[Rfam]
RNA sequence: GUUCGAUUUCGGUAGGCGAGGUUACCGCAGGGAUACGGAUUGCUGCCGCAAAAUAGUGGAGACACUAUGAGAGGGUCAGCAGUUUAUGUCGAAACCAAGGCAUAGACUAAUGCAAUUUCAUUGCCCUGCGAUGCUGAAGCUUGAACGGUAGCGCGUUUUU
Numbered sequence: 001g002u003u004c005g006a007u008u009u010c011g012g013u014a015g016g017c018g019a020g021g022u023u024a025c026c027g028c029a030g031g032g033a034u035a036c037g038g039a040u041u042g043c044u045g046c047c048g049c050a051a052a053a054u055a056g057u058g059g060a061g062a063c064a065c066u067a068u069g070a071g072a073g074g075g076u077c078a079g080c081a082g083u084u085u086a087u088g089u090c091g092a093a094a095c096c097a098a099g100g101c102a103u104a105g106a107c108u109a110a111u112g113c114a115a116u117u118u119c120a121u122u123g124c125c126c127u128g129c130g131a132u133g134c135u136g137a138a139g140c141u142u143g144a145a146c147g148g149u150a151g152c153g154c155g156u157u158u159u160u
Stems, first nucleotide, its partner, number of pairs: 005156001008153001010151001011146001013098001015141003020135003026130007039116005046074002049071001055066004082107004088101003
RNA: M-box riboswitch aptamer (ykoK leader)